[Rfam]
Nucleotides: 270
Stems, first nucleotide, its partner, number of pairs: 002014003020267005029258001031256005038250002041246004046241001048239004053067003057063002074229003079225004084217005089211003093206009103145001104143001106141001108140003112135001115133005121128002146150001154197007165188003172181003
Number, partner (000 for none) and nucleotide at each position: 001000a002014a003013u004012c005000u006000g007000u008000c009000a010000u011000g012004g013003a014002u015000a016000a017000c018000c019000c020267a021266g022265u023264g024263g025000a026000a027000g028000g029258c030000u031256c032255a033254c034253c035252g036000c037000c038250a039249u040000g041246c042245u043244a044243a045000u046241u047000a048239c049238c050237c051236u052000g053067c054066u055065u056000c057063g058062g059000c060000u061000g062058u063057c064000a065055a066054g067053g068000u069000c070000a071000g072000c073000a074229g075228g076227a077000a078000a079225g080224g081223u082222g083000c084217c085216u086215g087214g088213u089211a090210c091209g092000a093206a094205u095204c096203c097202u098201g099200g100199g101198g102000u103145u104143g105000g106141c107000a108140u109139u110138u111000u112135c113000a114000c115133u116132c117131g118130u119129g120000c121128g122127a123000g124000u125000a126000a127122u128121c129119c130118a131117c132116g133115a134000c135112g136000c137000u138110g139109g140108a141106g142000g143104c144000c145103a146150u147000u148000a149000a150146g151000c152000a153000a154197u155196g156195g157194a158193a159192a160191u161000g162000a163000c164000c165188c166187u167186u168000g169000a170000g171000g172181g173180a174179a175000g176000c177000a178000a179174u180173u181172c182000u183000g184000c185000a186167g187166a188165g189000a190000c191160a192159u193158u194157u195156c196155c197154a198101c199100c200099c201098c202097g203096g204095g205094a206093u207000g208000g209091c210090g211089u212000c213088g214087c215086c216085a217084g218000a219000u220000u221000a222082c223081a224080c225079c226000a227076u228075c229074c230000u231000g232000u233000u234000a235000c236051a237050g238049g239048g240000a241046a242000c243044u244043u245042g246041g247000c248000a249039a250038u251000u252035u253034g254033g255032u256031g257000u258029g259000a260000c261000a262000a263024c264023u265022a266021c267020u268000a269000u270000u

The record is a 270-nucleotide RNA from Penicillium freii, which matches "Fungal signal recognition particle RNA" in Rfam. Taxonomically the source falls in Penicillium (Eukaryota, Dikarya, Pezizomycotina, Aspergillaceae). A reference for the family is Regalia et al. (2002), "Prediction of signal recognition particle RNA genes", Nucleic Acids Res. Rfam 15.1 lists 748 matches to the family in 741 species.